[Rfam]
Bacterial RNase P class A: a 347-nucleotide RNA sequence from Fodinibius salinus. By type it is a ribozyme. Its family is annotated with tRNA processing, ribonuclease P activity and dimeric ribonuclease P complex in the Gene Ontology. The match comes from Rfam's covariance-model search (235 bits). The base pairs follow the family's consensus structure, which is taken from published work.

RNA sequence: AUGGAUGAUCGGGCAACCGCUCACCUGUCAGGUGAGAGGAAAGUCCGAACACCAACGAGUACUGUGUUUCCUAACGGGAAGAUUCGGGCAACCGGAUAGAAGAAAGUGCCACAGAAAAAUAAACUACCCGGCAUGUAUGCUGGGAAAAGGUGAAAAGGUGAGGUAAGAGCUCACCGUCCCGCAUCGCAAGGUGGGGAGCAGGGCAAACCUCACAGGGUGCAAGCUCAUGUAGGUCGUACGCCGCUCGUCGUUAUACGGCCGGGUGGAGUGCUUAAGUUCCGGGGCGACCCGGGAAUUAGAUAAAUGAUUGCCUCUGACAGAAUUCGGCUUACAGAUCAUCCCAUGAA
Numbered sequence: 001a002u003g004g005a006u007g008a009u010c011g012g013g014c015a016a017c018c019g020c021u022c023a024c025c026u027g028u029c030a031g032g033u034g035a036g037a038g039g040a041a042a043g044u045c046c047g048a049a050c051a052c053c054a055a056c057g058a059g060u061a062c063u064g065u066g067u068u069u070c071c072u073a074a075c076g077g078g079a080a081g082a083u084u085c086g087g088g089c090a091a092c093c094g095g096a097u098a099g100a101a102g103a104a105a106g107u108g109c110c111a112c113a114g115a116a117a118a119a120u121a122a123a124c125u126a127c128c129c130g131g132c133a134u135g136u137a138u139g140c141u142g143g144g145a146a147a148a149g150g151u152g153a154a155a156a157g158g159u160g161a162g163g164u165a166a167g168a169g170c171u172c173a174c175c176g177u178c179c180c181g182c183a184u185c186g187c188a189a190g191g192u193g194g195g196g197a198g199c200a201g202g203g204c205a206a207a208c209c210u211c212a213c214a215g216g217g218u219g220c221a222a223g224c225u226c227a228u229g230u231a232g233g234u235c236g237u238a239c240g241c242c243g244c245u246c247g248u249c250g251u252u253a254u255a256c257g258g259c260c261g262g263g264u265g266g267a268g269u270g271c272u273u274a275a276g277u278u279c280c281g282g283g284g285c286g287a288c289c290c291g292g293g294a295a296u297u298a299g300a301u302a303a304a305u306g307a308u309u310g311c312c313u314c315u316g317a318c319a320g321a322a323u324u325c326g327g328c329u330u331a332c333a334g335a336u337c338a339u340c341c342c343a344u345g346a347a
Base pairs, nucleotide, nucleotide: 003341004340005339006338007337008336009335010334011332012312013311014310015309016308018306020036021035022034023033024032025031026030041330042329043328045327046326047325048324049323050219051218052217053216057248059246062215063214064213065212066211067081068080069079070078071077082097084095085094086093087092098210099209106208107207108204109203110202124149125148127144128143129142130141131140132139133138157175158174159173160172161171162170176199177197178196179195180194182193183192184191185190223269224268225267226266232260233259234258235257236256237255242250243249277294278293279292280291281290282289283288